[Rfam]
RNA sequence: CCUGUUCGGCAGCCGCCACAGGGAUGGAAUGUGGGCCCUCGAGGCCUGAACCAACGA
Numbered sequence: 001c002c003u004g005u006u007c008g009g010c011a012g013c014c015g016c017c018a019c020a021g022g023g024a025u026g027g028a029a030u031g032u033g034g035g036c037c038c039u040c041g042a043g044g045c046c047u048g049a050a051c052c053a054a055c056g057a
Base pairs, nucleotide, nucleotide: 001023002022003021025053026052027051033047034046035045036044037043
RNA: eL15-Euryarchaeota ribosomal protein leader